[Rfam]
RNA: U2 spliceosomal RNA
RNA sequence: AUCACUUCUUGGCCUUGUGGCUAAGAUCAAGUGUAGUAGCUGUUCUUAUCAGUUUAGUAUCUGAUAUGUCCUGAAUCUGAGGACAAUAUAUUAAGUGGAUUUUUGAAAUUAGGAGAUGGAAUAGGAGCUUGCUCUGUCCACUCCACCCAUCAACCUGGUGUAACAGUACUUCUAUAAAUGAUGCAUGCACG
Numbered sequence: 001a002u003c004a005c006u007u008c009u010u011g012g013c014c015u016u017g018u019g020g021c022u023a024a025g026a027u028c029a030a031g032u033g034u035a036g037u038a039g040c041u042g043u044u045c046u047u048a049u050c051a052g053u054u055u056a057g058u059a060u061c062u063g064a065u066a067u068g069u070c071c072u073g074a075a076u077c078u079g080a081g082g083a084c085a086a087u088a089u090a091u092u093a094a095g096u097g098g099a100u101u102u103u104u105g106a107a108a109u110u111a112g113g114a115g116a117u118g119g120a121a122u123a124g125g126a127g128c129u130u131g132c133u134c135u136g137u138c139c140a141c142u143c144c145a146c147c148c149a150u151c152a153a154c155c156u157g158g159u160g161u162a163a164c165a166g167u168a169c170u171u172c173u174a175u176a177a178a179u180g181a182u183g184c185a186u187g188c189a190c191g
Stems, first nucleotide, its partner, number of pairs: 007026003011022004047066006068084005074078001112144004118138002124135004148183005156174003